[Rfam]
RNA sequence: GGGGGCGACAUUGGCUUCGACGUUGAUUACAAACCCUUUGGUGCAUGUCGUGUGGGUAGCAACACACGUACUUCAAGUGCUGCAAAUGAUAGUUGCAAACGACGACAACUACGCUUUAGCCGCUUAAGGCUAAACCGCCACAAGGGCUUGCUUGUGGGAACGAAGUGGCGGUAAUUAAACACAAGAUCGCGGCGCGGCCUGCCUGGUGCCAAACCGCUAAAACCUUACAGGCUGGCUUUUUACUCCCUGUCUAGUCGGGUCGUAACGAGCGAGAUUAAUAGACAAGACUAAGCAUGUAGAUCCUUAGGCAGCGGAUUGGCGGACGCGGGUUCGAUCCCCGCCGCCUCCACCA
Number, nucleotide and partner (000 for none) at each position: 001g348002g347003g346004g345005g344006c343007g342008a000009c000010a000011u000012u000013g000014g000015c000016u000017u000018c000019g000020a000021c321022g320023u319024u318025g317026a316027u315028u314029a000030c000031a000032a000033a000034c000035c308036c307037u306038u000039u000040g303041g302042u000043g000044c296045a295046u294047g293048u292049c068050g067051u066052g065053u064054g000055g000056g083057u082058a081059g080060c079061a078062a000063c000064a053065c052066a051067c050068g049069u000070a000071c000072u000073u000074c000075a000076a000077g000078u061079g060080c059081u058082g057083c056084a000085a000086a000087u000088g000089a000090u000091a000092g000093u000094u000095g000096c000097a000098a000099a000100c000101g000102a000103c000104g000105a000106c000107a000108a000109c000110u000111a000112c000113g000114c000115u134116u133117u132118a131119g130120c129121c128122g000123c000124u000125u000126a000127a000128g121129g120130c119131u118132a117133a116134a115135c171136c170137g169138c168139c167140a166141c000142a000143a000144g161145g000146g000147c158148u157149u000150g000151c185152u184153u183154g182155u181156g180157g148158g147159a000160a000161c144162g000163a000164a000165g000166u140167g139168g138169c137170g136171g135172u000173a000174a000175u000176u000177a000178a000179a000180c156181a155182c154183a153184a152185g151186a000187u000188c000189g217190c216191g215192g214193c000194g000195c000196g000197g000198c000199c000200u000201g232202c231203c230204u229205g228206g000207u000208g000209c000210c000211a000212a000213a000214c192215c191216g190217c189218u000219a000220a000221a000222a000223c000224c000225u000226u000227a000228c205229a204230g203231g202232c201233u000234g000235g270236c269237u268238u267239u000240u265241u264242a263243c262244u000245c259246c258247c257248u000249g288250u287251c286252u285253a000254g283255u282256c281257g247258g246259g245260u000261c000262g243263u242264a241265a240266c000267g238268a237269g236270c235271g000272a000273g000274a000275u000276u000277a000278a000279u000280a000281g256282a255283c254284a000285a252286g251287a250288c249289u000290a000291a000292g048293c047294a046295u045296g044297u000298a000299g000300a000301u000302c041303c040304u000305u000306a037307g036308g035309c000310a000311g000312c000313g000314g028315a027316u026317u025318g024319g023320c022321g021322g000323a000324c000325g341326c340327g339328g338329g337330u000331u000332c000333g000334a000335u000336c000337c329338c328339c327340g326341c325342c007343g006344c005345c004346u003347c002348c001349a000350c000351c000352a000
RNA: transfer-messenger RNA
Organism: Ketobacter alkanivorans